RNA sequence: CAGCAUGCUAUCCUAAGGACCUGGGCUUGUGUGUAGCCCCAGGUUCUCCAAGUGCAUGCAAGAAAAUAGGGUGGUCUUUGACUGUUGUGGCCAUUUCUGCCAUCAGCAGCCACUCAGCUGUCCUACAGAU
Number, nucleotide and partner (000 for none) at each position: 001c000002a000003g000004c000005a000006u000007g000008c000009u000010a000011u000012c000013c042014u041015a000016a000017g000018g038019a000020c036021c000022u000023g000024g032025g000026c000027u000028u000029g000030u000031g000032u024033g000034u000035a000036g020037c000038c018039c000040c000041a014042g013043g000044u000045u000046c000047u000048c000049c000050a000051a000052g000053u000054g000055c000056a000057u000058g000059c000060a000061a000062g000063a000064a000065a000066a000067u000068a000069g123070g122071g121072u120073g119074g118075u000076c000077u000078u000079u000080g000081a000082c000083u000084g110085u109086u000087g103088u102089g101090g100091c000092c000093a000094u000095u000096u000097c000098u000099g000100c090101c089102a088103u087104c000105a000106g000107c000108a000109g085110c084111c000112a000113c000114u000115c000116a000117g000118c074119u073120g072121u071122c070123c069124u000125a000126c000127a000128g000129a000130u000